This 151-nucleotide RNA sequence from Bacillus sp. THAF10 belongs to the Rfam family "Ribosomal protein L20 leader". A reference for the family is Zengel and Lindahl (1994), "Diverse mechanisms for regulating ribosomal protein synthesis in Escherichia coli", Prog Nucleic Acid Res Mol Biol. Rfam's curators write: This family is a putative r-protein leader autoregulatory structure found in B. subtilis and other low-GC Gram-positive bacteria. The family's RNA type in Rfam is cis-regulatory leader.

RNA sequence: GAGAACAAGAAGAAGCACCCGCUUCUCACCUGAUCGACGCGAACGCAGUAACAUGCAACAGGCAGUUGGCAGGUUUUACGACAAUGAUUUUUCUUUUACUAUUGUAAUCGUAAAGUGUGGGUGUGUUGUGCAUCCGCACUUUUUUGUUUGU
Numbered sequence: 001g002a003g004a005a006c007a008a009g010a011a012g013a014a015g016c017a018c019c020c021g022c023u024u025c026u027c028a029c030c031u032g033a034u035c036g037a038c039g040c041g042a043a044c045g046c047a048g049u050a051a052c053a054u055g056c057a058a059c060a061g062g063c064a065g066u067u068g069g070c071a072g073g074u075u076u077u078a079c080g081a082c083a084a085u086g087a088u089u090u091u092u093c094u095u096u097u098a099c100u101a102u103u104g105u106a107a108u109c110g111u112a113a114a115g116u117g118u119g120g121g122u123g124u125g126u127u128g129u130g131c132a133u134c135c136g137c138a139c140u141u142u143u144u145u146g147u148u149u150g151u
Stems, first nucleotide, its partner, number of pairs: 011026006028074003036067003039063002116138010